Background: The family of this 271-nucleotide RNA from Jaculus jaculus is "Mason-Pfizer monkey virus packaging signal". The family's RNA type in Rfam is cis-regulatory element. On this family, see Mustafa et al., Virus Res 2004: "Mutational analysis of the predicted secondary RNA structure of the Mason-Pfizer monkey virus packaging signal". Pairs were carried over by alignment from the consensus structure, which was predicted with PFOLD. Taxonomically the source falls in Jaculus (Eukaryota, Tetrapoda, Mammalia, Theria).
RNA sequence: UGGCACCCAGAACAUGGACUUGAAUACGAGGGACUUCAAUGAGGAAUUCCAACAUCAACUUGGGAUCCGUGGAAGAAAGUGAAAUUUAAAAGAGGACUGUGGUUGCCUGCUCAUUCUUUUUGAAUAAAGUAAGUUGGCGCAAUUAUGGGACAAGCAAAGAGUAAAAAGGAGCUAAUUGCUGUAGUAAAAGAUAUUUUAAAAGCACAAGGAAUUAGGAUUACAUCAAGUUCUUUAAGCAAAUUUUUUGAUUUCAUUAAUAAAAUGAGCCCUU
Numbered sequence: 001u002g003g004c005a006c007c008c009a010g011a012a013c014a015u016g017g018a019c020u021u022g023a024a025u026a027c028g029a030g031g032g033a034c035u036u037c038a039a040u041g042a043g044g045a046a047u048u049c050c051a052a053c054a055u056c057a058a059c060u061u062g063g064g065a066u067c068c069g070u071g072g073a074a075g076a077a078a079g080u081g082a083a084a085u086u087u088a089a090a091a092g093a094g095g096a097c098u099g100u101g102g103u104u105g106c107c108u109g110c111u112c113a114u115u116c117u118u119u120u121u122g123a124a125u126a127a128a129g130u131a132a133g134u135u136g137g138c139g140c141a142a143u144u145a146u147g148g149g150a151c152a153a154g155c156a157a158a159g160a161g162u163a164a165a166a167a168g169g170a171g172c173u174a175a176u177u178g179c180u181g182u183a184g185u186a187a188a189a190g191a192u193a194u195u196u197u198a199a200a201a202g203c204a205c206a207a208g209g210a211a212u213u214a215g216g217a218u219u220a221c222a223u224c225a226a227g228u229u230c231u232u233u234a235a236g237c238a239a240a241u242u243u244u245u246u247g248a249u250u251u252c253a254u255u256a257a258u259a260a261a262a263u264g265a266g267c268c269c270u271u
Stems, first nucleotide, its partner, number of pairs: 006032003015026002038048003084130003087126002093119001094117002098113002101111002134153003138149001140147002159197002161194003205247008215233003220228001256271002